[Rfam]
RNA: mir-9791 microRNA precursor family
Organism: Sus scrofa
RNA sequence: AGGAAAGGAACCUCAGUCCUGGGGUUGGGGUUGUGAUGAAGGAGGAUCGACUCCCCAAAGUGAGGGAGGGACGUUUCCA
Numbered sequence: 001a002g003g004a005a006a007g008g009a010a011c012c013u014c015a016g017u018c019c020u021g022g023g024g025u026u027g028g029g030g031u032u033g034u035g036a037u038g039a040a041g042g043a044g045g046a047u048c049g050a051c052u053c054c055c056c057a058a059a060g061u062g063a064g065g066g067a068g069g070g071a072c073g074u075u076u077c078c079a
Stems, first nucleotide, its partner, number of pairs: 002078005008072001011069004018065003022061001025058006035048003